Rfam assigns this 88-nucleotide RNA from Desulfuribacillus stibiiarsenatis to the family "c-di-GMP-I riboswitch aptamer". A reference for the family is Sudarsan et al. (2008), "Riboswitches in Eubacteria Sense the Second Messenger Cyclic Di-GMP", Science. Rfam describes the family as follows. GEMM was predicted in a large-scale screen for bacterial structured RNA regulatory elements.
RNA sequence: UCUCGAUAAAGGCAAAACUGAUGAAAGUCAGUGACGCAAAGCUACAGGGGCUAAUGUGUUUCGUGCACGAUGCUCGCCAGCUACCGAA
Numbered sequence: 001u002c003u004c005g006a007u008a009a010a011g012g013c014a015a016a017a018c019u020g021a022u023g024a025a026a027g028u029c030a031g032u033g034a035c036g037c038a039a040a041g042c043u044a045c046a047g048g049g050g051c052u053a054a055u056g057u058g059u060u061u062c063g064u065g066c067a068c069g070a071u072g073c074u075c076g077c078c079a080g081c082u083a084c085c086g087a088a
Stems, first nucleotide, its partner, number of pairs: 012037002017032006040082004047078002049074003056068004